[Rfam]
RNA sequence: GAGUUAUGCUUCGUGGCGAGGUUAACCCGGGUGGGGGAGCCGUAGCGAAAGCGAGUCCGAACAGGGCGGUCAGUCGCGGGGUGUAGACCCGAAGCGGGGUGAUCUACCCAUGGCCAGGGUGAAGCGUCGGUAAGACGUCGUGGAGGCCCGAACCCACCAGGGUUGAAAACCUGGGGGAUGAGCUGUGGGUAGGGGUGAAAGGCCAAUCAAACUCCGUGAUAGCUGGUU
Dot-bracket structure: ....(((((((((((((..((((..(((....)))..))))...((....))..((((.....)))).....)))))))))))))..((.(...((((((...((((((((((((.((((...(((.((......)).)))....))))...(((.(((((........))))))))..).))))))))))).(((.....)))......))))))......).))..

Overview
Rfam assigns this 228-nucleotide part of an RNA from Pseudonocardia asaccharolytica to the family "Bacterial large subunit ribosomal RNA". For this family Rfam cites "Crystal structure of the ribosome at 5.5 A resolution" (Yusupov et al., Science, 2001). The family is grouped with related families in Rfam's "LSU clan". Lineage of the source: Bacteria > Actinomycetes > Pseudonocardiaceae > Pseudonocardia > Pseudonocardia asaccharolytica.